Background: A member of the RNA family "Mammalian CPEB3 ribozyme" from Alligator mississippiensis, 75 nucleotides long.
[Rfam]
RNA sequence: GCUGAAAUUCCAGGCCAUAGAAGAAGUGCUCAUAGCACGGCCCAGUCAGAUUCCAGUGAAUCUGCAAAUUCUGUU
Numbered sequence: 001g002c003u004g005a006a007a008u009u010c011c012a013g014g015c016c017a018u019a020g021a022a023g024a025a026g027u028g029c030u031c032a033u034a035g036c037a038c039g040g041c042c043c044a045g046u047c048a049g050a051u052u053c054c055a056g057u058g059a060a061u062c063u064g065c066a067a068a069u070u071c072u073g074u075u
Base pairs, nucleotide, nucleotide: 013042014041015040016039019075020074022072023071024070025069026038027037028036047064048063049062050061051060052059053058
Dot-bracket structure: ............((((..[[.[[[[(((.......)))))))....(((((((....)))))))....]]]].]]
Taxonomically the source falls in Alligator (Eukaryota, Vertebrata, Archosauria, Alligatoridae).